[Rfam]
RNA sequence: AUAUUCGGUAGGCAUUUGAACUAUAUUGUGCGCCUUACAUUUAGUUAAAGCACUAAAAAGGAGAGA
Number, nucleotide and partner (000 for none) at each position: 001a000002u000003a000004u000005u000006c000007g000008g000009u000010a035011g034012g033013c032014a000015u000016u000017u000018g000019a000020a000021c000022u000023a000024u000025a000026u056027u055028g053029u052030g051031c050032g013033c012034c011035u010036u000037a045038c044039a000040u000041u000042u000043a000044g038045u037046u000047a000048a000049a000050g031051c030052a029053c028054u000055a027056a026057a000058a000059a000060g000061g000062a000063g000064a000065g000066a000
The record is a 66-nucleotide RNA from Pelagibacterales bacterium SAG-MED45, which matches "SAM-V (S-adenosyl methionine) riboswitch aptamer" in Rfam.
On this family, see Poiata et al., RNA 2009: "A variant riboswitch aptamer class for S-adenosylmethionine common in marine bacteria".
Its family is annotated with S-adenosylmethionine metabolic process and regulation of gene expression in the Gene Ontology.
About the family: SAM-V riboswitch is a cis-regulatory element that was recognised in marine bacteria it recognise S-adenosylmethione (SAM).
The base pairs follow the family's consensus structure, which is taken from published work.
The family has 7 seed sequences and 23 matches in Rfam 15.1.